[Rfam]
RNA sequence: CGCAUGCAUGACUGUAAGUCGCUUUGGAUAAAAACUUCUGCUAAAUGGCAUAUA
Numbered sequence: 001c002g003c004a005u006g007c008a009u010g011a012c013u014g015u016a017a018g019u020c021g022c023u024u025u026g027g028a029u030a031a032a033a034a035c036u037u038c039u040g041c042u043a044a045a046u047g048g049c050a051u052a053u054a
Stems, first nucleotide, its partner, number of pairs: 013043001014041003021035001023033003
The record is a 54-nucleotide RNA sequence from Salmo salar, which matches "UnaL2 LINE 3' element" in Rfam. The literature on the family includes a 2004 paper in RNA by Baba et al., "Solution structure of an RNA stem-loop derived from the 3' conserved region of eel LINE UnaL2". Pairs were carried over by alignment from the consensus structure, which is taken from published work. Rfam's curators write: The eel long interspersed element (LINE) UnaL2 and its partner short interspersed element (SINE) share a conserved 3' tail containing a stem-loop that is critical for their retrotransposition. Presumably, the first step of retrotransposition is the recognition of their 3' tails by UnaL2-encoded reverse transcriptase. The solution structure of a 17-nucleotide RNA derived from the 3' tail of UnaL2 was determined by NMR.